[Rfam]
RNA sequence: AGUCAGCACAAGGAGGCAGACAUGGGACGCGCUUACUCUCUGAAUGUCCUGGCAGUUGGUGUAGCAUUCGUAUUCGUGGCUUCCAUGCUCUUCAUUUGAGCGCCACAGUUUCACAACUACCGGUCAUAUCUGGCAUCCGUGACAAUCAUAUAAAGAUUUGAAAGCAGGAAACGCAGCUCCAUCGGGCUGCGUUUC
Number, nucleotide and partner (000 for none) at each position: 001a000002g000003u000004c000005a000006g000007c000008a000009c000010a000011a000012g000013g000014a000015g048016g047017c046018a045019g000020a000021c000022a000023u000024g040025g039026g038027a037028c000029g000030c000031g000032c000033u000034u000035a000036c000037u027038c026039u025040c024041u000042g000043a000044a000045u018046g017047u016048c015049c000050u000051g000052g000053c000054a000055g000056u000057u000058g000059g000060u000061g000062u000063a000064g000065c000066a000067u000068u000069c000070g000071u000072a000073u000074u000075c000076g000077u000078g000079g000080c000081u000082u000083c000084c000085a000086u000087g000088c000089u000090c000091u000092u000093c000094a000095u000096u000097u000098g000099a000100g000101c000102g000103c000104c000105a000106c000107a000108g000109u000110u000111u000112c000113a000114c000115a000116a000117c000118u000119a000120c000121c000122g000123g000124u000125c000126a000127u000128a000129u000130c000131u000132g000133g000134c000135a000136u000137c000138c000139g000140u000141g000142a000143c000144a000145a000146u000147c000148a000149u000150a000151u000152a000153a000154a000155g000156a000157u000158u000159u000160g000161a000162a000163a000164g000165c000166a000167g000168g195169a194170a193171a192172c191173g190174c189175a188176g187177c186178u185179c184180c000181a000182u000183c000184g179185g178186g177187c176188u175189g174190c173191g172192u171193u170194u169195c168
This 195-nucleotide RNA from Pseudorhizobium pelagicum belongs to the Rfam family "Rhizobiales sRNA Atu_C9".
A reference for the family is Wilms et al. (2012), "Deep sequencing uncovers numerous small RNAs on all four replicons of the plant pathogen Agrobacterium tumefaciens", RNA Biol.
Taxonomically the source falls in Pseudorhizobium (Bacteria, Pseudomonadati, Alphaproteobacteria, Rhizobiaceae).
The family's consensus secondary structure was predicted with WAR.